[Rfam]
Background
MIR390 microRNA precursor family: a 103-nucleotide sequence from Brassica oleracea.
RNA sequence: GAGAAGAAUCUGUAAAGCUCAGGAGGGAUAGCGCCAUCAUAUAUAAUCUCAUUCACAUCGAUAUUUUUGGCGCUGUCCAUCCUGAGUUUCAUUGGCUCUCCUU
Numbered sequence: 001g002a003g004a005a006g007a008a009u010c011u012g013u014a015a016a017g018c019u020c021a022g023g024a025g026g027g028a029u030a031g032c033g034c035c036a037u038c039a040u041a042u043a044u045a046a047u048c049u050c051a052u053u054c055a056c057a058u059c060g061a062u063a064u065u066u067u068u069g070g071c072g073c074u075g076u077c078c079a080u081c082c083u084g085a086g087u088u089u090c091a092u093u094g095g096c097u098c099u100c101c102u103u
Base pairs, nucleotide, nucleotide: 010094016088017087018086019085020084021083022082023081024080026078027077028076029075030074031073032072033071034070035069

Overview
The source organism's lineage runs through Eukaryota, Streptophyta, Embryophyta, malvids and Brassica oleracea. The literature on the family includes a 2005 paper in Plant Physiol by Xie et al., "Expression of Arabidopsis MIRNA genes". The match comes from Rfam's covariance-model search (100 bits).